[Rfam]
Rfam assigns this 60-nucleotide RNA from Paralichthys olivaceus to the family "mir-1 microRNA precursor family". It is one of the family's seed sequences. NCBI's taxonomy places the organism under Eukaryota, Actinopteri, Neopterygii, Carangaria, Paralichthys. Rfam's curators write: This family represents the microRNA (miRNA) mir-1 family. miRNAs are transcribed as ~70nt precursors (modelled here) and subsequently processed by the Dicer enzyme to give a ~22nt product. In this case the mature sequence comes from the 3' arm of the precursor. The extents of the hairpin precursors are not generally known and are estimated based on hairpin prediction. For this family Rfam cites "microRNAs: tiny regulators with great potential" (Ambros, Cell, 2001).
RNA sequence: ACAUGCUUCCUUAUAUCCCCAUAUUCAUACAGCACUUAUGGAAUGUAAGGAAGUGUGUGG
Numbered sequence: 001a002c003a004u005g006c007u008u009c010c011u012u013a014u015a016u017c018c019c020c021a022u023a024u025u026c027a028u029a030c031a032g033c034a035c036u037u038a039u040g041g042a043a044u045g046u047a048a049g050g051a052a053g054u055g056u057g058u059g060g
Stems, first nucleotide, its partner, number of pairs: 001058016019041005